[Rfam]
RNA sequence: CGACAUACGGGGAGCUAGGACGCGCGGCCCACACACCGGCCGCCGGGACCGCGCCGAGCCACCGGCGAGACCGACCCGCGAAGACG
Numbered sequence: 001c002g003a004c005a006u007a008c009g010g011g012g013a014g015c016u017a018g019g020a021c022g023c024g025c026g027g028c029c030c031a032c033a034c035a036c037c038g039g040c041c042g043c044c045g046g047g048a049c050c051g052c053g054c055c056g057a058g059c060c061a062c063c064g065g066c067g068a069g070a071c072c073g074a075c076c077c078g079c080g081a082a083g084a085c086g
Stems, first nucleotide, its partner, number of pairs: 001086002004083001006080001008078004014059002022054006029047001038072002041067004
RNA: c-di-GMP-II-GAG riboswitch aptamer